[Rfam]
RNA sequence: UGGAAAUUCACUCUUUUAGUAUUUGUCCAGUAGGUUUCUUUUAAAGGAUGACCCAU
Numbered sequence: 001u002g003g004a005a006a007u008u009c010a011c012u013c014u015u016u017u018a019g020u021a022u023u024u025g026u027c028c029a030g031u032a033g034g035u036u037u038c039u040u041u042u043a044a045a046g047g048a049u050g051a052c053c054c055a056u
Stems, first nucleotide, its partner, number of pairs: 033053003036048005

Shown here is a 56-nucleotide RNA from Sinocyclocheilus rhinocerous, a member of the family "U7 small nuclear RNA". Pairs were carried over by alignment from the consensus structure, which was predicted with PFOLD. The source organism's lineage runs through Eukaryota, Eumetazoa, Actinopteri, Cyprinidae and Sinocyclocheilus. Rfam's curators write: Animal histone pre-mRNAs are spliced by a different mechanism than nuclear pre-mRNAs and self-splicing introns.